[Rfam]
Rfam assigns this 119-nucleotide RNA from Actinocrinis puniceicyclus to the family "Group II catalytic intron D1-D4-2". The organism belongs to Actinocrinis, within Bacteria. The pairing is the family consensus, mapped onto this sequence. Its family is annotated with Group II intron splicing in the Gene Ontology. Rfam's curators write: Group II introns are found in rRNA, tRNA and mRNA of organelles in fungi, plants and protists, and also in mRNA in bacteria.

RNA sequence: GGAGGUUUGGCCCUCCGGGACCGCCCGCGCAGGGGGAGGUCCCAAACCACCGCAAGCUGCGUCGGUGAAUGAGCCGGGGUGGUGAGCGUUGCGGAAAAGGCGCACGUGAUGCGUCAGGU
Numbered sequence: 001g002g003a004g005g006u007u008u009g010g011c012c013c014u015c016c017g018g019g020a021c022c023g024c025c026c027g028c029g030c031a032g033g034g035g036g037a038g039g040u041c042c043c044a045a046a047c048c049a050c051c052g053c054a055a056g057c058u059g060c061g062u063c064g065g066u067g068a069a070u071g072a073g074c075c076g077g078g079g080u081g082g083u084g085a086g087c088g089u090u091g092c093g094g095a096a097a098a099g100g101c102g103c104a105c106g107u108g109a110u111g112c113g114u115c116a117g118g119u
Stems, first nucleotide, its partner, number of pairs: 001016005017043006024036003028033001048118001050094006056083002059080002063076004099115006